[Rfam]
RNA sequence: UUCUUAUAAAGAGUGGUGGAGGGAUAGGCCCUGCGAAGCCACAGCAACCGGUCCGCCAGCGGACGCCAGGUGCUAAAUCCUGCCGAAAGGCAAAGAUGAGAA
Numbered sequence: 001u002u003c004u005u006a007u008a009a010a011g012a013g014u015g016g017u018g019g020a021g022g023g024a025u026a027g028g029c030c031c032u033g034c035g036a037a038g039c040c041a042c043a044g045c046a047a048c049c050g051g052u053c054c055g056c057c058a059g060c061g062g063a064c065g066c067c068a069g070g071u072g073c074u075a076a077a078u079c080c081u082g083c084c085g086a087a088a089g090g091c092a093a094a095g096a097u098g099a100g101a102a
Stems, first nucleotide, its partner, number of pairs: 001102007013042005021031003025082004043074004048070002050067003078094001084090001
Shown here is a 102-nucleotide RNA sequence from Geobacter sp. DSM 9736, a member of the family "SAM riboswitch aptamer (S box leader)". The source organism's lineage runs through Bacteria, Pseudomonadati, Thermodesulfobacteriota, Desulfuromonadia and Geobacter. The match comes from Rfam's covariance-model search (71 bits).